[Rfam]
This 100-nucleotide sequence from Sphenodon punctatus belongs to the Rfam family "Small nucleolar RNA U6-53/MBII-28". On this family, see Huttenhofer et al., EMBO J 2001: "RNomics: an experimental approach that identifies 201 candidates for novel, small, non-messenger RNAs in mouse". The match comes from Rfam's covariance-model search (68 bits). Lineage of the source: Eukaryota > Metazoa > Deuterostomia > Teleostomi > Sphenodon.
RNA sequence: CACCUGUGAUGACUCGCCAUGCUAAUACCGAAUCCCCGAGCAGGGCAAGUGGCUUUGCUCUGGGAGUGAAUGAGUUAAACUGCAUCUCCUGCUGAGGUGU
Number, nucleotide and partner (000 for none) at each position: 001c099002a098003c097004c096005u000006g000007u000008g000009a000010u000011g000012a000013c000014u000015c000016g000017c000018c000019a000020u000021g000022c000023u000024a000025a000026u000027a000028c000029c000030g000031a000032a000033u000034c000035c000036c000037c000038g000039a000040g000041c057042a056043g055044g054045g053046c000047a000048a000049g000050u000051g000052g000053c045054u044055u043056u042057g041058c000059u000060c000061u000062g000063g000064g000065a000066g000067u000068g000069a000070a000071u000072g000073a000074g000075u000076u000077a000078a000079a000080c000081u000082g000083c000084a000085u000086c000087u000088c000089c000090u000091g000092c000093u000094g000095a000096g004097g003098u002099g001100u000